[Rfam]
RNA: Lysine riboswitch aptamer
RNA sequence: AAAACUGGUAGAGGAUGCGACUUUCAAAAGUAUGUGCGGAUGAGGCUCAGCCAGAGCCGACAGAAUGCGCGCAGAAAGGGGAAGCCGCCGAAGCUGAACGGGUGGCGCCCGCGAUGCUGGGGGUACGUUUAAGAAAUGUACAACUGUCAUCAUGCAAUGUGAUGGAGGGCUAUCGACGAA
Numbered sequence: 001a002a003a004a005c006u007g008g009u010a011g012a013g014g015a016u017g018c019g020a021c022u023u024u025c026a027a028a029a030g031u032a033u034g035u036g037c038g039g040a041u042g043a044g045g046c047u048c049a050g051c052c053a054g055a056g057c058c059g060a061c062a063g064a065a066u067g068c069g070c071g072c073a074g075a076a077a078g079g080g081g082a083a084g085c086c087g088c089c090g091a092a093g094c095u096g097a098a099c100g101g102g103u104g105g106c107g108c109c110c111g112c113g114a115u116g117c118u119g120g121g122g123g124u125a126c127g128u129u130u131a132a133g134a135a136a137u138g139u140a141c142a143a144c145u146g147u148c149a150u151c152a153u154g155c156a157a158u159g160u161g162a163u164g165g166a167g168g169g170c171u172a173u174c175g176a177c178g179a180a
Stems, first nucleotide, its partner, number of pairs: 006175006017088003021084005033073006040066002092118003099111005119145002123141007147165007